[Rfam]
RNA: RNA Staph. aureus D
Organism: Staphylococcus simulans
RNA sequence: CUUUGCUAUAAUAAAUUUCAACUUCCUUAAUCAAGAGAUUAAGGAAGUUAUCUCCUUUGUGUUGUUUACAAUAAACAAGCAAAAUUUUCGCUCGAAUGCACCAUCAGUACCUAGUCCUUACUGAUUACGUGCAUCAAAUUCAUUUCCCGUUGAAAGCAGGUAAUGUUUGUGUCUCCCCACAUUCAUUCACCUGUUUUCA
Numbered sequence: 001c002u003u004u005g006c007u008a009u010a011a012u013a014a015a016u017u018u019c020a021a022c023u024u025c026c027u028u029a030a031u032c033a034a035g036a037g038a039u040u041a042a043g044g045a046a047g048u049u050a051u052c053u054c055c056u057u058u059g060u061g062u063u064g065u066u067u068a069c070a071a072u073a074a075a076c077a078a079g080c081a082a083a084a085u086u087u088u089c090g091c092u093c094g095a096a097u098g099c100a101c102c103a104u105c106a107g108u109a110c111c112u113a114g115u116c117c118u119u120a121c122u123g124a125u126u127a128c129g130u131g132c133a134u135c136a137a138a139u140u141c142a143u144u145u146c147c148c149g150u151u152g153a154a155a156g157c158a159g160g161u162a163a164u165g166u167u168u169g170u171g172u173c174u175c176c177c178c179a180c181a182u183u184c185a186u187u188c189a190c191c192u193g194u195u196u197u198c199a
Stems, first nucleotide, its partner, number of pairs: 018050001020049013056083005062077001065074002098132004103125003107121003156194006162187004